The family of this 89-nucleotide sequence from Crypturellus undulatus is "mir-1426 microRNA precursor family".

RNA sequence: UAAGGUUGAUACUCCUUCCUUAACUCAUGCCGCUGUGCCUUUUUAUGUCAUUUCACAAUUGUGUGAGUUGAGCAGAGAGUGUCAGUCCA
Numbered sequence: 001u002a003a004g005g006u007u008g009a010u011a012c013u014c015c016u017u018c019c020u021u022a023a024c025u026c027a028u029g030c031c032g033c034u035g036u037g038c039c040u041u042u043u044u045a046u047g048u049c050a051u052u053u054c055a056c057a058a059u060u061g062u063g064u065g066a067g068u069u070g071a072g073c074a075g076a077g078a079g080u081g082u083c084a085g086u087c088c089a
Base pairs, nucleotide, nucleotide: 004087005086006085007084008083009082010081011080012079013078019072020071021070022069023068024067025066026065027064028063034057035056036055037054
Dot-bracket structure: ...((((((((((.....((((((((((.....((((................)))).....)))))))))).....))))))))))..

The match comes from Rfam's covariance-model search (91 bits).